[Rfam]
A member of the RNA family "Potassium channel RNA editing signal" from Phascolarctos cinereus, 114 nucleotides long. This family represents a group of sequences related to the human potassium channel Kv1.1 hairpin element which directs the efficient modification of an adenosine to inosine by an adenosine deaminase acting on RNA (ADAR). The ADAR modification causes an isoleucine/valine recoding event which lies in the ion-conducting pore of the potassium channel. The match comes from Rfam's covariance-model search (105 bits). The organism belongs to Phascolarctos, within Eukaryota. By type it is a cis-regulatory element.
Nucleotides: 114
Base pairs, nucleotide, nucleotide: 002113004111008107009106010105011104013102014101015100016099018097020095021094037077038076039075040074049063050062
Number, partner (000 for none) and nucleotide at each position: 001000c002113u003000g004111g005000g006000g007000u008107a009106u010105g011104g012000a013102g014101a015100c016099a017000u018097g019000u020095a021094c022000c023000c024000c025000a026000a027000g028000a029000c030000u031000u032000g033000g034000u035000c036000a037077g038076g039075g040074a041000u042000g043000c044000u045000g046000g047000u048000g049063g050062g051000g052000g053000c054000g055000c056000u057000g058000u059000g060000u061000g062050c063049c064000c065000u066000g067000g068000c069000a070000g071000g072000u073000g074040u075039c076038c077037u078000u079000a080000c081000c082000a083000u084000c085000g086000c087000u088000a089000u090000g091000c092000c093000u094021g095020u096000u097018c098000c099016u100015g101014u102013c103000a104011u105010c106009g107008u108000c109000a110000a111004c112000a113002a114000u